[Rfam]
RNA sequence: AAACAGCCCUCUAUGUUUUGAUUAUUUGGCAGUUUUGGACCCCCAAUCCAUUGUUGACUUGGUCAACGCUGACGUGGCAUCCUAAGUGAGGUGUCACGUGUCAAUUUUUUUUUUUUUUUGCCUUGGGGGUCCAAAACUGUCAAAGAAUCAAAACAUAGGGGGCUGUUU
Number, nucleotide and partner (000 for none) at each position: 001a168002a167003a000004c165005a164006g163007c162008c161009c000010u000011c000012u157013a156014u155015g154016u153017u152018u151019u150020g149021a148022u147023u146024a000025u144026u143027u142028g141029g140030c139031a138032g137033u136034u135035u134036u133037g132038g131039a130040c129041c128042c127043c126044c125045a124046a000047u000048c000049c000050a000051u000052u000053g000054u000055u000056g000057a000058c000059u000060u000061g000062g000063u000064c000065a000066a000067c000068g000069c000070u000071g000072a099073c098074g000075u096076g095077g094078c093079a092080u091081c090082c000083u000084a000085a000086g000087u000088g000089a000090g081091g080092u079093g078094u077095c076096a075097c000098g073099u072100g000101u000102c000103a000104a000105u000106u000107u000108u000109u000110u000111u000112u000113u000114u000115u000116u000117u000118u000119u000120g000121c000122c000123u000124u045125g044126g043127g042128g041129g040130u039131c038132c037133a036134a035135a034136a033137c032138u031139g030140u029141c028142a027143a026144a025145g000146a023147a022148u021149c020150a019151a018152a017153a016154c015155a014156u013157a012158g000159g000160g000161g008162g007163c006164u005165g004166u000167u002168u001